This 84-nucleotide RNA from Ornithorhynchus anatinus belongs to the Rfam family "mir-1419 microRNA precursor family". Lineage of the source: Eukaryota > Chordata > Gnathostomata > Sarcopterygii > Ornithorhynchus. Pairs were carried over by alignment from the consensus structure, which was predicted with RNAalifold. The literature on the family includes a 2008 paper in Genome Res by Murchison et al., "Conservation of small RNA pathways in platypus".
RNA sequence: UGAUGGUCACGCGCAUUGCCAGGAGUUUCAUCAUGUGCUACCUCGUUCCAUGAUGUGAUCACCUGGCACCGCGUGUGUCCAUCG
Number, nucleotide and partner (000 for none) at each position: 001u084002g083003a082004u000005g080006g079007u000008c077009a076010c000011g000012c000013g000014c000015a000016u000017u068018g067019c066020c065021a064022g063023g062024a000025g060026u000027u058028u000029c055030a054031u053032c052033a051034u050035g000036u000037g000038c000039u000040a000041c000042c000043u000044c000045g000046u000047u000048c000049c000050a034051u033052g032053a031054u030055g029056u000057g000058a027059u000060c025061a000062c023063c022064u021065g020066g019067c018068a017069c000070c000071g000072c000073g000074u000075g000076u009077g008078u000079c006080c005081a000082u003083c002084g001